[Rfam]
RNA sequence: UGCUUCUACAUGACGAAAAUAUUUCGGAUGUAAACCUUUGUCUUUACUGAACAGCGCAAACAACCCCGUGUUGAUAUUUCCGUUGCCUUCCUUCUGAUCUACGAAGC
Numbered sequence: 001u002g003c004u005u006c007u008a009c010a011u012g013a014c015g016a017a018a019a020u021a022u023u024u025c026g027g028a029u030g031u032a033a034a035c036c037u038u039u040g041u042c043u044u045u046a047c048u049g050a051a052c053a054g055c056g057c058a059a060a061c062a063a064c065c066c067c068g069u070g071u072u073g074a075u076a077u078u079u080c081c082g083u084u085g086c087c088u089u090c091c092u093u094c095u096g097a098u099c100u101a102c103g104a105a106g107c
Stems, first nucleotide, its partner, number of pairs: 003106003025082004
A member of the RNA family "Small nucleolar RNA Z13/snr52" from Neoarthrinium moseri, 107 nucleotides long. Its family is annotated with nucleolus and RNA processing in the Gene Ontology. It is annotated as a C/D-box small nucleolar RNA.